This 139-nucleotide RNA from Phtheirospermum japonicum belongs to the Rfam family "Small nucleolar RNA Z247". It scores 40 bits against the family's covariance model.
[Rfam]
RNA sequence: AAGGUUAAUGAGAAUGAUCAGAUCAUGUAUCUCUUGAAUGGUUUAGGAGCUGAAUACAACCCCCUUAUUGUUUCAAUCACCACAAGCCAUGAGAAGGUCAGCAUGAUGGAAGCAUAUUCUAUGCUCUUUAGUUUUGAGA
Numbered sequence: 001a002a003g004g005u006u007a008a009u010g011a012g013a014a015u016g017a018u019c020a021g022a023u024c025a026u027g028u029a030u031c032u033c034u035u036g037a038a039u040g041g042u043u044u045a046g047g048a049g050c051u052g053a054a055u056a057c058a059a060c061c062c063c064c065u066u067a068u069u070g071u072u073u074c075a076a077u078c079a080c081c082a083c084a085a086g087c088c089a090u091g092a093g094a095a096g097g098u099c100a101g102c103a104u105g106a107u108g109g110a111a112g113c114a115u116a117u118u119c120u121a122u123g124c125u126c127u128u129u130a131g132u133u134u135u136g137a138g139a
Base pairs, nucleotide, nucleotide: 005137006136007135008134088108089107090106092104

The family's consensus secondary structure was predicted with PFOLD.
Gene Ontology terms of the family: RNA processing and nucleolus.